[Rfam]
The family of this 69-nucleotide sequence from Nyssa sinensis is "Plastid-clpP 5UTR RNA". The source organism's lineage runs through Eukaryota, Spermatophyta, Mesangiospermae, Gunneridae and Nyssa. For this family Rfam cites "Retrograde signaling in plants: A critical review focusing on the GUN pathway and beyond" (Richter et al., Plant Commun, 2023). By type it is a cis-regulatory element. About the family: Plastid clpP is a non-coding RNA (ncRNA) recognised in plastids. It was found in the prime untranslated region (5UTR) of a protease complex subunit (clpP) in plastids, suggesting a posible cis-regulatory function.

RNA sequence: AAUUCUGUUUGUAGGACCAAAGAGAAGCAGAUUUAUUCUAUACUCGAUAAGUACCAAUAUGCAUUGGGA
Numbered sequence: 001a002a003u004u005c006u007g008u009u010u011g012u013a014g015g016a017c018c019a020a021a022g023a024g025a026a027g028c029a030g031a032u033u034u035a036u037u038c039u040a041u042a043c044u045c046g047a048u049a050a051g052u053a054c055c056a057a058u059a060u061g062c063a064u065u066g067g068g069a
Base pairs, nucleotide, nucleotide: 003022004021006019007018009016010015043068044067045066051060052059053058
Dot-bracket structure: ..((.((.((....)).)).))....................(((.....(((....))).....))).